The family of this 68-nucleotide RNA from Actinoplanes derwentensis is "ASdes TB sRNA". For this family Rfam cites "Identification of small RNAs in Mycobacterium tuberculosis" (Arnvig and Young, Mol Microbiol, 2009). The family has 26 seed sequences and 1,192 matches in Rfam 15.1. NCBI's taxonomy places the organism under Bacteria, Bacillati, Actinomycetota, Micromonosporaceae, Actinoplanes.
[Rfam]
RNA sequence: AGCUCGACCGGGUCCACGCCGCGGGUCACCGUCAGGUAGUCGCGGAUCGCGAUGCCGUGCCGGCCCUC
Numbered sequence: 001a002g003c004u005c006g007a008c009c010g011g012g013u014c015c016a017c018g019c020c021g022c023g024g025g026u027c028a029c030c031g032u033c034a035g036g037u038a039g040u041c042g043c044g045g046a047u048c049g050c051g052a053u054g055c056c057g058u059g060c061c062g063g064c065c066c067u068c
Stems, first nucleotide, its partner, number of pairs: 004063003008059001011030003016026002035056004040052005